pan motif: a 90-nucleotide RNA from Cytobacillus solani. The match comes from Rfam's covariance-model search (70 bits). Taxonomically the source falls in Cytobacillus (Bacteria, Bacillati, Bacillota, Bacillaceae).
RNA sequence: CGGGCAGUAUCCUCUUGUUGAACUGCACCAAUUUGAUAUCAAAUAAAUUAAAGAUUUCUGCCUAGAUCCAUAAUGGACCGGGACAGAGGG
Numbered sequence: 001c002g003g004g005c006a007g008u009a010u011c012c013u014c015u016u017g018u019u020g021a022a023c024u025g026c027a028c029c030a031a032u033u034u035g036a037u038a039u040c041a042a043a044u045a046a047a048u049u050a051a052a053g054a055u056u057u058c059u060g061c062c063u064a065g066a067u068c069c070a071u072a073a074u075g076g077a078c079c080g081g082g083a084c085a086g087a088g089g090g
Stems, first nucleotide, its partner, number of pairs: 002029002004026005010021002058086003061082003065078001067077003